[Rfam]
RNA: Nematode snoRNA ceN39
RNA sequence: UUGGCGGAUAGGAACCAGUCGGUGCCAAUGCAUAGAUUGGGCCGAAAACCGCCAAGAGUAUAUGUGUACAUCAUGGUCGUAUGUGUUUCUUUUCUGAAGCAUGUAUAUCACCAUUGUGCGCGACAAAGU
Numbered sequence: 001u002u003g004g005c006g007g008a009u010a011g012g013a014a015c016c017a018g019u020c021g022g023u024g025c026c027a028a029u030g031c032a033u034a035g036a037u038u039g040g041g042c043c044g045a046a047a048a049c050c051g052c053c054a055a056g057a058g059u060a061u062a063u064g065u066g067u068a069c070a071u072c073a074u075g076g077u078c079g080u081a082u083g084u085g086u087u088u089c090u091u092u093u094c095u096g097a098a099g100c101a102u103g104u105a106u107a108u109c110a111c112c113a114u115u116g117u118g119c120g121c122g123a124c125a126a127a128g129u
Base pairs, nucleotide, nucleotide: 003053004052005051006050007049011043012042015040016039017038018037019036020035022033023032024031025030064121065120066119067118068117069116070115071113075112076111077110079106080105082103083102084101085100086099088098090096